Rhodo-rpoB RNA: a 91-nucleotide sequence from Roseovarius azorensis. A search with the family's covariance model found it, with a score of 75 bits. The family's consensus secondary structure is taken from published work.

[Rfam]
RNA sequence: UGAUCGGGAGGCCGUCAUUGGGACGACGGCCAUGAAUGGAUCAAACCCUGCCCUCUCUGAUGGCCGUGGCGCUGGACCCCGACAGCGCGCG
Numbered sequence: 001u002g003a004u005c006g007g008g009a010g011g012c013c014g015u016c017a018u019u020g021g022g023a024c025g026a027c028g029g030c031c032a033u034g035a036a037u038g039g040a041u042c043a044a045a046c047c048c049u050g051c052c053c054u055c056u057c058u059g060a061u062g063g064c065c066g067u068g069g070c071g072c073u074g075g076a077c078c079c080c081g082a083c084a085g086c087g088c089g090c091g
Stems, first nucleotide, its partner, number of pairs: 001043005010031007067091002070087005